[Rfam]
RNA: Small nucleolar RNA SNORD25
RNA sequence: AGAACUGUGAUGAGAUUAACAGACCUGUAAUGAAAUUGCGGAUAUGAUCGCAAUUCUUUAAAGAACAUCUAAGGGACUGAGUUCAA
Numbered sequence: 001a002g003a004a005c006u007g008u009g010a011u012g013a014g015a016u017u018a019a020c021a022g023a024c025c026u027g028u029a030a031u032g033a034a035a036u037u038g039c040g041g042a043u044a045u046g047a048u049c050g051c052a053a054u055u056c057u058u059u060a061a062a063g064a065a066c067a068u069c070u071a072a073g074g075g076a077c078u079g080a081g082u083u084c085a086a
Base pairs, nucleotide, nucleotide: 002084003083004082005081